The family of this 118-nucleotide RNA from Streptomyces showdoensis is "Streptomyces-metK RNA".
[Rfam]
RNA sequence: CCAGGAGUCCUGGCCAGAUACCCGAUCGUGACCGAUAGACUGUUCUCGGAACGUCGCGGGGCGCAGCCCCCUGCCGGUCCGCAUUCGUUGAGCCAGCAGCCGCUGCAACCCCAGGGAG
Numbered sequence: 001c002c003a004g005g006a007g008u009c010c011u012g013g014c015c016a017g018a019u020a021c022c023c024g025a026u027c028g029u030g031a032c033c034g035a036u037a038g039a040c041u042g043u044u045c046u047c048g049g050a051a052c053g054u055c056g057c058g059g060g061g062c063g064c065a066g067c068c069c070c071c072u073g074c075c076g077g078u079c080c081g082c083a084u085u086c087g088u089u090g091a092g093c094c095a096g097c098a099g100c101c102g103c104u105g106c107a108a109c110c111c112c113a114g115g116g117a118g
Base pairs, nucleotide, nucleotide: 048080049079050078052076053075056074058072059071060070061069094105095104096103097102
The match comes from Rfam's covariance-model search (96 bits).